[Rfam]
RNA sequence: GGGUGGUCCAAAGGUAGUGAGUUAUCUCAAUUGACUGUUUACAGCCAGUUACAGAUAGAACUCCUUGUUCUACUUUCCCCCACUUCUCACUACUGCACUUGACCAGUCUUUU
Numbered sequence: 001g002g003g004u005g006g007u008c009c010a011a012a013g014g015u016a017g018u019g020a021g022u023u024a025u026c027u028c029a030a031u032u033g034a035c036u037g038u039u040u041a042c043a044g045c046c047a048g049u050u051a052c053a054g055a056u057a058g059a060a061c062u063c064c065u066u067g068u069u070c071u072a073c074u075u076u077c078c079c080c081c082a083c084u085u086c087u088c089a090c091u092a093c094u095g096c097a098c099u100u101g102a103c104c105a106g107u108c109u110u111u112u
Stems, first nucleotide, its partner, number of pairs: 001108002004105005010100002014096002016091006043074002047071002